[Rfam]
RNA sequence: AUUCAUAAAACACUGCUUGGCAGAAGCGGGGGAACCAAAUUUUGGGCUUCACAUCAAAGCCCUUGGGGUUAAGUUGCACUACGCAACCGAGUGACUUCCUACUCGAACCCGACAGCUCACCUCGUUAGGCACUGGAGGAAAA
Numbered sequence: 001a002u003u004c005a006u007a008a009a010a011c012a013c014u015g016c017u018u019g020g021c022a023g024a025a026g027c028g029g030g031g032g033a034a035c036c037a038a039a040u041u042u043u044g045g046g047c048u049u050c051a052c053a054u055c056a057a058a059g060c061c062c063u064u065g066g067g068g069u070u071a072a073g074u075u076g077c078a079c080u081a082c083g084c085a086a087c088c089g090a091g092u093g094a095c096u097u098c099c100u101a102c103u104c105g106a107a108c109c110c111g112a113c114a115g116c117u118c119a120c121c122u123c124g125u126u127a128g129g130c131a132c133u134g135g136a137g138g139a140a141a142a
Base pairs, nucleotide, nucleotide: 002025003024004023026125027124028123029122030121031120036065037064066110067109068108074086075085076084077083089104090103091102092101
RNA: c-di-AMP riboswitch aptamer (ydaO/yuaA leader)